[Rfam]
RNA sequence: GUGGAAAAGAAGAAGCACCCGCUUCUCACCUGACGGACGCUUUUCAAGCAGUUUGCAGGUUUACCGGAGAUGAAUGAAUUUUAUAUGUUUGAACAUAUAAAAAAUAGUGCGGGUGUUUUUGCCUGCACUAUUUUUUUGAU
Numbered sequence: 001g002u003g004g005a006a007a008a009g010a011a012g013a014a015g016c017a018c019c020c021g022c023u024u025c026u027c028a029c030c031u032g033a034c035g036g037a038c039g040c041u042u043u044u045c046a047a048g049c050a051g052u053u054u055g056c057a058g059g060u061u062u063a064c065c066g067g068a069g070a071u072g073a074a075u076g077a078a079u080u081u082u083a084u085a086u087g088u089u090u091g092a093a094c095a096u097a098u099a100a101a102a103a104a105u106a107g108u109g110c111g112g113g114u115g116u117u118u119u120u121g122c123c124u125g126c127a128c129u130a131u132u133u134u135u136u137u138g139a140u
Base pairs, nucleotide, nucleotide: 011026012025013024014023015022016021028060029059030058036053037052038051039049040048108127109126110125111124112123113122114121115120
RNA: Ribosomal protein L20 leader
Organism: Fervidibacillus halotolerans